[Rfam]
Shown here is a 133-nucleotide RNA from Cephalotus follicularis, a member of the family "Small nucleolar RNA snoR111". Pairs were carried over by alignment from the consensus structure, which was predicted with WAR. Rfam 15.1 lists 533 matches to the family in 223 species. Rfam classes the family as an H/ACA-box small nucleolar RNA.
Nucleotides: 133
Stems, first nucleotide, its partner, number of pairs: 006037004011031006069129002072126004078117004087112006095104002
Number, partner (000 for none) and nucleotide at each position: 001000a002000u003000g004000a005000g006037g007036a008035u009034g010000a011031g012030a013029g014028a015027c016026g017000u018000a019000u020000u021000g022000u023000g024000a025000u026016u027015g028014u029013c030012u031011c032000u033000u034009c035008a036007u037006u038000g039000a040000c041000a042000a043000g044000a045000g046000c047000u048000u049000u050000g051000a052000g053000g054000u055000a056000u057000a058000a059000c060000a061000a062000g063000a064000g065000a066000u067000u068000u069129g070128g071000c072126c073125g074124a075123g076000a077000u078117a079116u080115c081114g082000u083000u084000u085000c086000g087112g088111u089110c090109g091108u092107c093000c094000u095104u096103u097000u098000u099000a100000c101000u102000u103096g104095a105000u106000u107092g108091a109090c110089g111088a112087u113000u114081c115080g116079a117078u118000u119000g120000u121000u122000g123075c124074u125073c126072g127000u128070c129069c130000a131000c132000a133000u